[Rfam]
This 400-nucleotide sequence from Gymnopilus junonius belongs to the Rfam family "RNase MRP". Rfam describes the family as follows. RNase MRP is an enzymatically active ribonucleoprotein with two distinct roles in eukaryotes. In mitochondria it plays a direct role in the initiation of mitochondrial DNA replication. In the nucleus it is involved in precursor rRNA processing, where it cleaves the internal transcribed spacer 1 between 18S and 5.8S rRNAs. Despite distinct functions, RNase MRP has been shown to be evolutionarily related to RNase P. Like eukaryotic RNase P, RNase MRP is not catalytically active without associated protein subunits. The family's consensus secondary structure is taken from published work. Its Rfam clan is "RNaseP clan". It is annotated as a ribozyme.
RNA sequence: GUGCUGUCUGAAGAAUCGCUUUCGCAGCUCCCGCGCAGGAAAGCUCUCUGCUUUUCAUCUUCAGCUGUGGGGAAAGUCCCCGGAGAUACAGAACAUAUCCUCGACUAUUCCACGGAAAGCGACCGGCUCCAAGCACGACGGUACUGGUCGAGGAUGGAUGAGGUUGUAUUGGCAGAUUGCGAAUCUGAGGACUUGCUCCUGCCUCCAUCUCAAUCCACUCUGUGGCUCUGUCUGGUGGGUUGCCAUCGACUAAGGCGCAGGCGCGCGAAGAUAUGAGCGUGCUUGUUGCUCGUUGGUUUACUUUGAAGGACUGGCCAUCCGUUGCUCAUAGACACAGUUAUGCGAUUGAUUGAUUCCUUCGCUGGAUCAUCAACUCAAUGGGGCUCACUCUCAGUCAGCA
Numbered sequence: 001g002u003g004c005u006g007u008c009u010g011a012a013g014a015a016u017c018g019c020u021u022u023c024g025c026a027g028c029u030c031c032c033g034c035g036c037a038g039g040a041a042a043g044c045u046c047u048c049u050g051c052u053u054u055u056c057a058u059c060u061u062c063a064g065c066u067g068u069g070g071g072g073a074a075a076g077u078c079c080c081c082g083g084a085g086a087u088a089c090a091g092a093a094c095a096u097a098u099c100c101u102c103g104a105c106u107a108u109u110c111c112a113c114g115g116a117a118a119g120c121g122a123c124c125g126g127c128u129c130c131a132a133g134c135a136c137g138a139c140g141g142u143a144c145u146g147g148u149c150g151a152g153g154a155u156g157g158a159u160g161a162g163g164u165u166g167u168a169u170u171g172g173c174a175g176a177u178u179g180c181g182a183a184u185c186u187g188a189g190g191a192c193u194u195g196c197u198c199c200u201g202c203c204u205c206c207a208u209c210u211c212a213a214u215c216c217a218c219u220c221u222g223u224g225g226c227u228c229u230g231u232c233u234g235g236u237g238g239g240u241u242g243c244c245a246u247c248g249a250c251u252a253a254g255g256c257g258c259a260g261g262c263g264c265g266c267g268a269a270g271a272u273a274u275g276a277g278c279g280u281g282c283u284u285g286u287u288g289c290u291c292g293u294u295g296g297u298u299u300a301c302u303u304u305g306a307a308g309g310a311c312u313g314g315c316c317a318u319c320c321g322u323u324g325c326u327c328a329u330a331g332a333c334a335c336a337g338u339u340a341u342g343c344g345a346u347u348g349a350u351u352g353a354u355u356c357c358u359u360c361g362c363u364g365g366a367u368c369a370u371c372a373a374c375u376c377a378a379u380g381g382g383g384c385u386c387a388c389u390c391u392c393a394g395u396c397a398g399c400a
Stems, first nucleotide, its partner, number of pairs: 002400005008394004014347006022070007038056007075385002078383004255266004270319003277315002281311001286308002289305001349370001351369005